The record is an 87-nucleotide sequence from an Acidimicrobiia bacterium, which matches "Glycine riboswitch aptamer" in Rfam.
[Rfam]
RNA sequence: CAACGCCAGGUGGGAAAGUCCCGUGACGGGCGCCGAAGGUGCAAGGUUUCCCCCGAAUCUCUCAGGCGCAAGGACCACCGGGCAACA
Numbered sequence: 001c002a003a004c005g006c007c008a009g010g011u012g013g014g015a016a017a018g019u020c021c022c023g024u025g026a027c028g029g030g031c032g033c034c035g036a037a038g039g040u041g042c043a044a045g046g047u048u049u050c051c052c053c054c055g056a057a058u059c060u061c062u063c064a065g066g067c068g069c070a071a072g073g074a075c076c077a078c079c080g081g082g083c084a085a086c087a
Stems, first nucleotide, its partner, number of pairs: 006082002009079005020030004032067003035063002039061001041059001045054002
Background
Pairs were carried over by alignment from the consensus structure. NCBI's taxonomy places the organism under Bacteria, Bacillati, Actinomycetota, Acidimicrobiia.